[Rfam]
RNA sequence: AUAUAAGCAAAAGUGCACUUUUUAGACUCAUUGAAUAACUGAUGUAUCUGGUCUGUAUUAUAGUCCACAUACAUCAGUUAUUCAAUGAAUCUAAAAGAUGCACUUUUGCUUAUAU
Numbered sequence: 001a002u003a004u005a006a007g008c009a010a011a012a013g014u015g016c017a018c019u020u021u022u023u024a025g026a027c028u029c030a031u032u033g034a035a036u037a038a039c040u041g042a043u044g045u046a047u048c049u050g051g052u053c054u055g056u057a058u059u060a061u062a063g064u065c066c067a068c069a070u071a072c073a074u075c076a077g078u079u080a081u082u083c084a085a086u087g088a089a090u091c092u093a094a095a096a097g098a099u100g101c102a103c104u105u106u107u108g109c110u111u112a113u114a115u
Stems, first nucleotide, its partner, number of pairs: 002114006009107005015101003019097007028088017049067003
RNA: MIR2593 microRNA precursor family